Shown here is a 132-nucleotide RNA sequence from Psophia crepitans, a member of the family "Small nucleolar RNA SNORA55".
Rfam describes the family as follows. ACA55 is a member of the H/ACA class of snoRNA that guide the sites of modification of uridines to pseudouridines.
Rfam 15.1 lists 1,476 matches to the family in 616 species.
The match comes from Rfam's covariance-model search (108 bits).
The source organism's lineage runs through Eukaryota, Amniota, Dinosauria, Theropoda and Psophia.
By type it is an H/ACA-box small nucleolar RNA.
RNA sequence: GCAUCUGAAUCUUUCCCACUCCGUGUGAUACAGUGCUGGACUGGGGACACAUGAUGCAAGAGGAAAGCAGAGGAAAUCCAGACAAGCUCCUGUCCCCACAGUGGGACUUGUCUCUACGCCUUUGCAACAUUU
Numbered sequence: 001g002c003a004u005c006u007g008a009a010u011c012u013u014u015c016c017c018a019c020u021c022c023g024u025g026u027g028a029u030a031c032a033g034u035g036c037u038g039g040a041c042u043g044g045g046g047a048c049a050c051a052u053g054a055u056g057c058a059a060g061a062g063g064a065a066a067g068c069a070g071a072g073g074a075a076a077u078c079c080a081g082a083c084a085a086g087c088u089c090c091u092g093u094c095c096c097c098a099c100a101g102u103g104g105g106a107c108u109u110g111u112c113u114c115u116a117c118g119c120c121u122u123u124g125c126a127a128c129a130u131u132u
Base pairs, nucleotide, nucleotide: 001057002056003055004054005053013047014046015045016044017043018042021039022038067125068124069123070122071121072120080113081112082111083110084109085108086107094104095103